Shown here is a 68-nucleotide sequence from Rhodococcus sp. Leaf258, a member of the family "ASdes TB sRNA".
It scores 74 bits against the family's covariance model.
The base pairs follow the family's consensus structure, which is taken from published work.
NCBI's taxonomy places the organism under Bacteria, Bacillati, Mycobacteriales, Nocardiaceae, Rhodococcus.
The family has 26 seed sequences and 1,192 matches in Rfam 15.1.
On this family, see Arnvig and Young, Mol Microbiol 2009: "Identification of small RNAs in Mycobacterium tuberculosis".
[Rfam]
RNA sequence: AGCGCGACGGGAUCGACGCUCCGGGUGACGACGAGAUAGUCGCGCAUCGCGAUGCCGUGGCGGUUCUC
Number, nucleotide and partner (000 for none) at each position: 001a000002g000003c000004g000005c062006g061007a000008c059009g058010g000011g000012a000013u028014c000015g000016a026017c025018g000019c000020u000021c000022c000023g000024g000025g017026u016027g000028a013029c000030g000031a000032c000033g000034a000035g056036a000037u054038a053039g000040u052041c051042g050043c049044g048045c000046a000047u000048c044049g043050c042051g041052a040053u038054g037055c000056c035057g000058u009059g008060g000061c006062g005063g000064u000065u000066c000067u000068c000